RNA sequence: GGAAGCGUGUGUCUCUGACACAUCUGAACAUCGAUCGCUUUCACUCAGCCGAUCUGCUCUGAUGAUGUCGACCGUACACAGUCGUCGGUGCUCCCGCUGCCACGUUCGCACGGUUGAGCGCUGCCUGUUCUAAAUUGCCGCUUUUCGGUGGCUAUGGGUGUACAAUCGGCAACUUUCUCCUGUAGGUUCCUAAAGUGGGGAGGGUAGCUACGUACAAACCUGCGCUUCCAUGUGCUGGCACUGCUCGAGGCAGUCUGCCAUGUUUUUG
Number, nucleotide and partner (000 for none) at each position: 001g229002g228003a227004a226005g225006c224007g223008u222009g000010u000011g000012u000013c000014u000015c000016u000017g000018a000019c000020a000021c000022a000023u000024c061025u000026g059027a000028a000029c056030a055031u000032c000033g054034a053035u052036c051037g049038c048039u047040u000041u000042c000043a000044c000045u000046c000047a039048g038049c037050c000051g036052a035053u034054c033055u030056g029057c000058u000059c026060u000061g024062a000063u000064g000065a000066u000067g000068u000069c000070g000071a000072c000073c000074g000075u000076a000077c000078a000079c000080a000081g000082u000083c000084g000085u000086c000087g000088g000089u000090g000091c000092u000093c000094c000095c000096g000097c000098u000099g000100c000101c000102a000103c000104g000105u000106u000107c000108g000109c000110a000111c000112g000113g000114u000115u000116g000117a000118g000119c000120g000121c000122u000123g000124c000125c000126u000127g000128u000129u000130c000131u000132a000133a000134a000135u000136u000137g000138c000139c000140g000141c000142u000143u000144u000145u000146c000147g000148g000149u000150g000151g000152c000153u000154a000155u000156g000157g000158g000159u000160g000161u000162a000163c000164a000165a000166u000167c000168g000169g000170c000171a000172a000173c000174u000175u000176u000177c000178u000179c000180c000181u000182g000183u000184a000185g000186g000187u000188u000189c000190c000191u000192a000193a000194a000195g000196u000197g000198g000199g000200g000201a000202g000203g000204g000205u000206a000207g000208c000209u000210a000211c000212g000213u000214a000215c000216a000217a000218a000219c000220c000221u000222g008223c007224g006225c005226u004227u003228c002229c001230a000231u000232g000233u000234g000235c000236u000237g259238g258239c257240a254241c253242u252243g251244c250245u000246c000247g000248a000249g000250g244251c243252a242253g241254u240255c000256u000257g239258c238259c237260a000261u000262g000263u000264u000265u000266u000267u000268g000
This 268-nucleotide RNA from Rhipicephalus microplus belongs to the Rfam family "Arthropod 7SK RNA". Its Rfam clan is "7SK clan". By type it is a non-coding RNA gene. The literature on the family includes a 2008 paper in Mol Biol Evol by Gruber et al., "Arthropod 7SK RNA". Rfam 15.1 lists 229 matches to the family in 137 species.